[Rfam]
RNA sequence: CUGUGGCGCUAGGGGUGCCCUUGGGGCUGAGAAACGCAAAGUCGUUAACCCUUAGAACUCGACCUGGAUAAUGCCAGCGGGAGAAAGUGCCGAAUUCGACAC
Numbered sequence: 001c002u003g004u005g006g007c008g009c010u011a012g013g014g015g016u017g018c019c020c021u022u023g024g025g026g027c028u029g030a031g032a033a034a035c036g037c038a039a040a041g042u043c044g045u046u047a048a049c050c051c052u053u054a055g056a057a058c059u060c061g062a063c064c065u066g067g068a069u070a071a072u073g074c075c076a077g078c079g080g081g082a083g084a085a086a087g088u089g090c091c092g093a094a095u096u097c098g099a100c101a102c
Stems, first nucleotide, its partner, number of pairs: 006090005011052004017027004034045003058083003064077004
The record is a 102-nucleotide RNA from Sulfobacillus harzensis, which matches "TPP riboswitch aptamer (THI element)" in Rfam.